Description: Lysine riboswitch aptamer: a 179-nucleotide sequence from Bhargavaea cecembensis. From the family's description: Riboswitches are metabolite binding domains within certain messenger RNAs that serve as precision sensors for their corresponding targets. It scores 108 bits against the family's covariance model. The base pairs follow the family's consensus structure, which is taken from published work.

[Rfam]
RNA sequence: CGAUUGGGUAGAGGCCGCAAUCGCUUAUGAGUAGCACACGUGAGUUGACAACGAUGACCGUGCGUAAAAGGAAGCAUUGCCGAAGUGGACCGGAGCAGUCAGCGAAGGUCCGCUGGGGCCAUUCCGAACAGGGAUGGCACUGUCAUGCGGAAAAAACCGCAUGGAGAGCUACAGAUCGU
Numbered sequence: 001c002g003a004u005u006g007g008g009u010a011g012a013g014g015c016c017g018c019a020a021u022c023g024c025u026u027a028u029g030a031g032u033a034g035c036a037c038a039c040g041u042g043a044g045u046u047g048a049c050a051a052c053g054a055u056g057a058c059c060g061u062g063c064g065u066a067a068a069a070g071g072a073a074g075c076a077u078u079g080c081c082g083a084a085g086u087g088g089a090c091c092g093g094a095g096c097a098g099u100c101a102g103c104g105a106a107g108g109u110c111c112g113c114u115g116g117g118g119c120c121a122u123u124c125c126g127a128a129c130a131g132g133g134a135u136g137g138c139a140c141u142g143u144c145a146u147g148c149g150g151a152a153a154a155a156a157c158c159g160c161a162u163g164g165a166g167a168g169c170u171a172c173a174g175a176u177c178g179u
Stems, first nucleotide, its partner, number of pairs: 008172004017080005023075004034065002037062004084114008095103001115141002118138008143164007
Dot-bracket structure: .......((((.....(((((.((((.......((.((((..................)))).))......)))))))))...((((((((...(.......)...))))))))((.((((((((.....)))))))).)).(((((((........)))))))....)))).......